Source information
Shown here is a 355-nucleotide RNA sequence from Bartonella bacilliformis, a member of the family "Alphaproteobacteria transfer-messenger RNA". The literature on the family includes a 1996 paper in RNA by Williams and Bartel, "Phylogenetic analysis of tmRNA secondary structure". Rfam's curators write: Bacterial tmRNA, also known as 10Sa RNA or SsrA, is named for its dual tRNA and mRNA-like properties. Its role is to liberate the mRNA from a stalled ribosome. To accomplish this part of the tmRNA is used as a reading frame that ends in a translation stop signal. The broken mRNA is replaced in the ribosome by the tmRNA and translation of the tmRNA leads to addition of a proteolysis tag to the incomplete protein enabling recognition by a protease. Recently a number of permuted tmRNA genes have been found encoded in two parts. tmRNAs have been identified in eubacteria and some chloroplasts but are absent from archaeal and eukaryote nuclear genomes. It is annotated as a non-coding RNA gene. The family's consensus secondary structure is taken from published work. NCBI's taxonomy places the organism under Bacteria, Alphaproteobacteria, Hyphomicrobiales, Bartonella, Bartonella bacilliformis.

[Rfam]
Nucleotides: 355
Stems, first nucleotide, its partner, number of pairs: 040053005057194005067188003070184004082173003086170003092108005109155007195210003200221001202219001205217002321336004327352006
Number, partner (000 for none) and nucleotide at each position: 001000c002000c003000c004000c005000u006000u007000c008000c009000c010000c011000a012000a013000a014000a015000a016000c017000u018000a019000u020000u021000c022000u023000u024000c025000c026000u027000c028000u029000a030000u031000a032000c033000u034000u035000a036000g037000a038000a039000a040053g041052c042051u043050g044049g045000u046000u047000u048000u049044c050043u051042a052041g053040c054000u055000a056000u057194g058193g059192u060191a061190a062000u063000a064000a065000a066000u067188g068187g069186a070184c071183a072182a073181u074000g075000a076000a077000a078000u079000a080000a081000g082173c083172u084171c085000a086170u087169u088168g089000g090000a091000c092108c093107c094106g095105g096104g097000g098000g099000c100000g101000g102000u103000a104096c105095c106094c107093g108092g109155c110154g111153c112152c113151u114150c115149c116000a117000c118000c119000a120000a121000a122000g123000u124000a125000u126000a127000a128000u129000u130000g131000a132000a133000g134000g135000a136000a137000u138000u139000a140000u141000a142000c143000u144000u145000u146000g147000g148000c149115g150114g151113g152112g153111g154110c155109g156000a157000a158000a159000u160000a161000g162000g163000a164000u165000c166000g167000a168088c169087a170086a171084g172083a173082g174000u175000g176000u177000a178000a179000a180000g181073a182072u183071u184070g185000c186069u187068c188067u189000u190061u191060u192059a193058c194057u195210c196209g197208g198000c199000a200221u201000u202219g203000u204000a205217c206216c207000a208197c209196c210195g211000u212000u213000a214000u215000c216206g217205g218000a219202c220000u221200a222000a223000a224000u225000g226000a227000g228000u229000a230000g231000u232000u233000g234000c235000a236000a237000a238000u239000g240000a241000c242000a243000a244000c245000u246000a247000u248000g249000c250000g251000g252000a253000a254000g255000c256000a257000c258000g259000u260000c261000u262000c263000g264000c265000c266000g267000c268000u269000u270000a271000a272000g273000c274000g275000g276000u277000g278000c279000g280000a281000a282000u283000g284000u285000u286000u287000c288000a289000a290000a291000c292000u293000a294000a295000g296000u297000c298000u299000u300000a301000a302000u303000c304000u305000g306000u307000c308000g309000c310000a311000a312000g313000g314000u315000u316000a317000a318000g319000c320000g321336g322335g323334g324333u325000u326000c327352g328351a329350a330349g331348g332347c333324a334323c335322c336321u337000g338000g339000c340000a341000a342000c343000a344000g345000a346000a347332g348331c349330c350329u351328u352327c353000a354000c355000u